[Rfam]
RNA sequence: AACGGGGUCCGGGCCCCUCUGGCAGGGUUGCUGGCCACCUGCGAUGUCGGACACCUGUC
Numbered sequence: 001a002a003c004g005g006g007g008u009c010c011g012g013g014c015c016c017c018u019c020u021g022g023c024a025g026g027g028u029u030g031c032u033g034g035c036c037a038c039c040u041g042c043g044a045u046g047u048c049g050g051a052c053a054c055c056u057g058u059c
Stems, first nucleotide, its partner, number of pairs: 007052006022042005027036001029034001

Rfam assigns this 59-nucleotide sequence from Lutimaribacter saemankumensis to the family "terC RNA". The match comes from Rfam's covariance-model search (49 bits). By type it is a cis-regulatory element. The family has 129 seed sequences and 1,112 matches in Rfam 15.1.